A member of the RNA family "mir-7 microRNA precursor family" from Liparis tanakae, 88 nucleotides long.
RNA sequence: GAGUCCACGGCGGCGUGGAAGACUAGUGAUUUUGUUGUUUUGUUGUGAAACCGACAACAAGUCAUCGUCUCCCUCGCUGUCUUGAGAC
Numbered sequence: 001g002a003g004u005c006c007a008c009g010g011c012g013g014c015g016u017g018g019a020a021g022a023c024u025a026g027u028g029a030u031u032u033u034g035u036u037g038u039u040u041u042g043u044u045g046u047g048a049a050a051c052c053g054a055c056a057a058c059a060a061g062u063c064a065u066c067g068u069c070u071c072c073c074u075c076g077c078u079g080u081c082u083u084g085a086g087a088c
Stems, first nucleotide, its partner, number of pairs: 004085002009081001011079005017073002020070004026065007034058006

A search with the family's covariance model found it, with a score of 62 bits. A reference for the family is Lagos-Quintana et al. (2001), "Identification of novel genes coding for small expressed RNAs", Science. About the family: This family represents the microRNA (miRNA) precursor mir-7. Lineage of the source: Eukaryota > Gnathostomata > Actinopterygii > Neopterygii > Liparis. Its family is annotated with RISC complex and miRNA-mediated post-transcriptional gene silencing in the Gene Ontology. Rfam 15.1 lists 2,589 matches to the family in 797 species. Pairs were carried over by alignment from the consensus structure, which was predicted with PFOLD.